[Rfam]
RNA sequence: GAUAACUUGUGGACAUGAAGACUAAAACAACUCAUAUAGUGUGUUGUCCGUAGUAGCUUCUUCUCAGUAUUUAUUGAGAUCGGAGCUUUCAUAUCAGCAUAACAUUU
Numbered sequence: 001g002a003u004a005a006c007u008u009g010u011g012g013a014c015a016u017g018a019a020g021a022c023u024a025a026a027a028c029a030a031c032u033c034a035u036a037u038a039g040u041g042u043g044u045u046g047u048c049c050g051u052a053g054u055a056g057c058u059u060c061u062u063c064u065c066a067g068u069a070u071u072u073a074u075u076g077a078g079a080u081c082g083g084a085g086c087u088u089u090c091a092u093a094u095c096a097g098c099a100u101a102a103c104a105u106u107u
Stems, first nucleotide, its partner, number of pairs: 040101007055087006062079004

A member of the RNA family "Small nucleolar RNA snoR97" from Papaver somniferum, 107 nucleotides long. A reference for the family is Marker et al. (2002), "Experimental RNomics: identification of 140 candidates for small non-messenger RNAs in the plant Arabidopsis thaliana", Curr Biol. Pairs were carried over by alignment from the consensus structure, which was predicted with WAR. The match comes from Rfam's covariance-model search (42 bits). Its family is annotated with RNA processing and nucleolus in the Gene Ontology. Rfam classes the family as an H/ACA-box small nucleolar RNA.